[Rfam]
RNA sequence: CGCAACAUCUUACUUGAUAGCGUUAGAUUGUGUUUGACUUCUAAUACUGUCAGGUAAAGAUGUCGAA
Numbered sequence: 001c002g003c004a005a006c007a008u009c010u011u012a013c014u015u016g017a018u019a020g021c022g023u024u025a026g027a028u029u030g031u032g033u034u035u036g037a038c039u040u041c042u043a044a045u046a047c048u049g050u051c052a053g054g055u056a057a058a059g060a061u062g063u064c065g066a067a
Base pairs, nucleotide, nucleotide: 003065005063006062007061008060009059010057011056012055013054014053015052016051017050018049019048020047022045023044024043025042026041027040

mir-8/mir-141/mir-200 microRNA precursor family: a 67-nucleotide RNA from Tropilaelaps mercedesae.
Lineage of the source: Eukaryota > Metazoa > Parasitiformes > Dermanyssoidea > Tropilaelaps.